[Rfam]
RNA sequence: UUGCCCACCUGGACUGCUGUGUCCUGGGUGACUAACACAGGGGGCAUAGCACCUCUCUCAUAAACCUGUGGUGAAGGUUCAAUUCCUCACCGCGGAUCCUGUCGGGAGAAACACAC
Numbered sequence: 001u002u003g004c005c006c007a008c009c010u011g012g013a014c015u016g017c018u019g020u021g022u023c024c025u026g027g028g029u030g031a032c033u034a035a036c037a038c039a040g041g042g043g044g045c046a047u048a049g050c051a052c053c054u055c056u057c058u059c060a061u062a063a064a065c066c067u068g069u070g071g072u073g074a075a076g077g078u079u080c081a082a083u084u085c086c087u088c089a090c091c092g093c094g095g096a097u098c099c100u101g102u103c104g105g106g107a108g109a110a111a112c113a114c115a116c
Base pairs, nucleotide, nucleotide: 002046003045004044005043006042008041009040010039012036013033015031017028055108056107057106058105059104066095067094068093069092070091071090072089074087076085
Dot-bracket structure: .(((((.(((.((.(.(..........)..).)..)..))))))))........(((((......(((((((.(.(........).).)))))))........)))))........

Description: The record is a 116-nucleotide RNA from Neogobius melanostomus, which matches "Small nucleolar RNA SNORA26" in Rfam. Clan: SNORA27 clan. By type it is an H/ACA-box small nucleolar RNA. Lineage of the source: Eukaryota > Neopterygii > Ctenosquamata > Neogobiini > Neogobius. The family's consensus secondary structure was predicted with RNAalifold. Its family is annotated with nucleolus and RNA processing in the Gene Ontology. About the family: The snoRNA HBI-6 belong to the H/ACA family of snoRNAs, guiding the pseudouridylation of position U4522 if the 28S rRNA. HBI-6 is the human orthologue of mouse MBI-6 snoRNA.